[Rfam]
Background: Shown here is a 359-nucleotide part of an RNA from an uncultured archaeon, a member of the family "Archaeal small subunit ribosomal RNA". The family is grouped with related families in Rfam's "SSU clan". For this family Rfam cites "The comparative RNA web (CRW) site: an online database of comparative sequence and structure information for ribosomal, intron, and other RNAs" (Cannone et al., BMC Bioinformatics, 2002). Rfam links the family to the GO terms ribosome and structural constituent of ribosome.
RNA sequence: GGUUUAAAGGGUCCGUAGCCGGCCUGUUAAGUCUCUUGGGAAAUCUGGCGACUUAAUCGUCAGGCGUCCAAGAGAUACUGACAGGCUUGGGACCGGGAGAGGUGGGAGGUACUCCAGGGGUAGGGGUGAAAUCUCGUAAUCCUUGGGGGACCACCGAUGGCGAAGGCAUCCCACCAGAACGGGUCCGACGGUGAGGGACGAAAGCUGGGGGCACGAACCGGAUUAGAUACCCGGGUAGUCCCAGCUGUAAACGAUGCUCGCUAGGUGUCAGGUGCGGUGCGACCGCAUCUGGUGCCGCAGUGAAAACUUGAAGCGAGUCACCUGGGAAGUACGGUCGCAAGGCUGAAACUUAAAGGAAU
Numbered sequence: 001g002g003u004u005u006a007a008a009g010g011g012u013c014c015g016u017a018g019c020c021g022g023c024c025u026g027u028u029a030a031g032u033c034u035c036u037u038g039g040g041a042a043a044u045c046u047g048g049c050g051a052c053u054u055a056a057u058c059g060u061c062a063g064g065c066g067u068c069c070a071a072g073a074g075a076u077a078c079u080g081a082c083a084g085g086c087u088u089g090g091g092a093c094c095g096g097g098a099g100a101g102g103u104g105g106g107a108g109g110u111a112c113u114c115c116a117g118g119g120g121u122a123g124g125g126g127u128g129a130a131a132u133c134u135c136g137u138a139a140u141c142c143u144u145g146g147g148g149g150a151c152c153a154c155c156g157a158u159g160g161c162g163a164a165g166g167c168a169u170c171c172c173a174c175c176a177g178a179a180c181g182g183g184u185c186c187g188a189c190g191g192u193g194a195g196g197g198a199c200g201a202a203a204g205c206u207g208g209g210g211g212c213a214c215g216a217a218c219c220g221g222a223u224u225a226g227a228u229a230c231c232c233g234g235g236u237a238g239u240c241c242c243a244g245c246u247g248u249a250a251a252c253g254a255u256g257c258u259c260g261c262u263a264g265g266u267g268u269c270a271g272g273u274g275c276g277g278u279g280c281g282a283c284c285g286c287a288u289c290u291g292g293u294g295c296c297g298c299a300g301u302g303a304a305a306a307c308u309u310g311a312a313g314c315g316a317g318u319c320a321c322c323u324g325g326g327a328a329g330u331a332c333g334g335u336c337g338c339a340a341g342g343c344u345g346a347a348a349c350u351u352a353a354a355g356g357a358a359u
Base pairs, nucleotide, nucleotide: 001322002321003320009319011199012198013197014196016193018192019191020190022086023085024084025083026082027081028080030079031078032075033074034073035072036071037070038069039068040067045063046062047061048060049059050058051057090186091185092184093182094181095180101175102174103173104172105171106170107169108152109151112148113147114146115145116144117143118142119141123134124133125132160167161166204245205244206243207242208241209240213239214238218234219233220232221231256318257317258316259315260314261313264296265295266294267293268292269291270290271289272288273287274286275285276284277283300307301306324351325350326349333344334343335342336341